[Rfam]
RNA: Small nucleolar RNA snR32
Organism: Henningerozyma blattae
RNA sequence: AACAUCAAUUUUAUCGCUGAAUUCAGUACUAUAUUUUAAUUAGAACCAAUUCUUAUGGUAUCUAAGGUAAAUACUAAUUUUCAAUGUGUUUGUCAUUAUUAAGUAUUGAUAAAGCGUAGAUUAAAUAGAACGUUGCUGGGCGCCUUACAUUGAUCAUUUUAAGAUUUGAGAUGUCGGGAAUCAGCUGUAUCUACAUUU
Numbered sequence: 001a002a003c004a005u006c007a008a009u010u011u012u013a014u015c016g017c018u019g020a021a022u023u024c025a026g027u028a029c030u031a032u033a034u035u036u037u038a039a040u041u042a043g044a045a046c047c048a049a050u051u052c053u054u055a056u057g058g059u060a061u062c063u064a065a066g067g068u069a070a071a072u073a074c075u076a077a078u079u080u081u082c083a084a085u086g087u088g089u090u091u092g093u094c095a096u097u098a099u100u101a102a103g104u105a106u107u108g109a110u111a112a113a114g115c116g117u118a119g120a121u122u123a124a125a126u127a128g129a130a131c132g133u134u135g136c137u138g139g140g141c142g143c144c145u146u147a148c149a150u151u152g153a154u155c156a157u158u159u160u161a162a163g164a165u166u167u168g169a170g171a172u173g174u175c176g177g178g179a180a181u182c183a184g185c186u187g188u189a190u191c192u193a194c195a196u197u198u
Base pairs, nucleotide, nucleotide: 015116016115017114023109024108025107026106027105028104029103030102040065041064042063043062045059046058047057066094067093068092069091070090072088073087074086128191129190130188131187132186143178144177147174148173149172150171151170154169155168156167158164